[Rfam]
RNA sequence: AUAAUGGACGGGAAUGAAGUUCUCCCGGGGCCAACGGCCCGAACCGCCGAAUCAUAGACAUGACAGGCUGAUGACUUCUGUGACAAA
Numbered sequence: 001a002u003a004a005u006g007g008a009c010g011g012g013a014a015u016g017a018a019g020u021u022c023u024c025c026c027g028g029g030g031c032c033a034a035c036g037g038c039c040c041g042a043a044c045c046g047c048c049g050a051a052u053c054a055u056a057g058a059c060a061u062g063a064c065a066g067g068c069u070g071a072u073g074a075c076u077u078c079u080g081u082g083a084c085a086a087a
Base pairs, nucleotide, nucleotide: 010026011025012024013023016078017077018076019075020074021073046068047067048066

This 87-nucleotide RNA sequence from Eubacteriaceae bacterium Marseille-Q4139 belongs to the Rfam family "Fluoride riboswitch aptamer (crcB RNA motif)". Rfam links the family to the GO terms response to fluoride and positive regulation of gene expression.